[Rfam]
RNA sequence: GUCGGCAUCGUGACCGUCGAACCGACGGCCGUGCCUGUCGUCACCGAACUGCCGGGCCGUACCAAUGCGUUUCUCGUGGCGCAAGUGCGCGCGCGGGUGGACGGCAUCGUGCUGCGCCGCGAAUUCACCGAAGGCAGCCAGGUGAAGGCCGGCCAGCGUCUCUACAAGAUCGA
Numbered sequence: 001g002u003c004g005g006c007a008u009c010g011u012g013a014c015c016g017u018c019g020a021a022c023c024g025a026c027g028g029c030c031g032u033g034c035c036u037g038u039c040g041u042c043a044c045c046g047a048a049c050u051g052c053c054g055g056g057c058c059g060u061a062c063c064a065a066u067g068c069g070u071u072u073c074u075c076g077u078g079g080c081g082c083a084a085g086u087g088c089g090c091g092c093g094c095g096g097g098u099g100g101a102c103g104g105c106a107u108c109g110u111g112c113u114g115c116g117c118c119g120c121g122a123a124u125u126c127a128c129c130g131a132a133g134g135c136a137g138c139c140a141g142g143u144g145a146a147g148g149c150c151g152g153c154c155a156g157c158g159u160c161u162c163u164a165c166a167a168g169a170u171c172g173a
Base pairs, nucleotide, nucleotide: 003054004053005052006051007050008047009046010045011043012042013041014040016038018037019036022033023031024030055150056149057148058147061143062142063141069135070134072133074131075130079092080091081090082089094121095120097118100115102114103113104112105111106110157172158171159169160168161167

Rfam assigns this 173-nucleotide RNA from Paraburkholderia phenazinium to the family "Burkholderia RNA 14". Taxonomically the source falls in Paraburkholderia (Bacteria, Pseudomonadati, Pseudomonadota, Betaproteobacteria). It is annotated as a small RNA. From the family's description: Co-purified with Hfq, expression confirmed by Northern blot. Putative functional homologue of PA-SraF. Overlaps coding sequence. The literature on the family includes a 2013 paper in Genomics by Ramos et al., "Experimental identification of small non-coding regulatory RNAs in the opportunistic human pathogen Burkholderia cenocepacia J2315". It scores 148 bits against the family's covariance model. The family has 3 seed sequences and 98 matches in Rfam 15.1.